[Rfam]
RNA sequence: ACGAGAUGCCCGGGUGCCAUGUGCUUGCUGUACGUGGCUGAGACGGCUGUUUGGCCGAACCGUAGAACCUGAUCUGGGUAAUACCAGCGAUAGGAAGACUUCAUACUGUGACU
Numbered sequence: 001a002c003g004a005g006a007u008g009c010c011c012g013g014g015u016g017c018c019a020u021g022u023g024c025u026u027g028c029u030g031u032a033c034g035u036g037g038c039u040g041a042g043a044c045g046g047c048u049g050u051u052u053g054g055c056c057g058a059a060c061c062g063u064a065g066a067a068c069c070u071g072a073u074c075u076g077g078g079u080a081a082u083a084c085c086a087g088c089g090a091u092a093g094g095a096a097g098a099c100u101u102c103a104u105a106c107u108g109u110g111a112c113u
Base pairs, nucleotide, nucleotide: 006101008099010097011062012061013060015057016038017037018036019035020034021033022032023031024030045056046055047054048053068094069093070092071091074087075086076085077084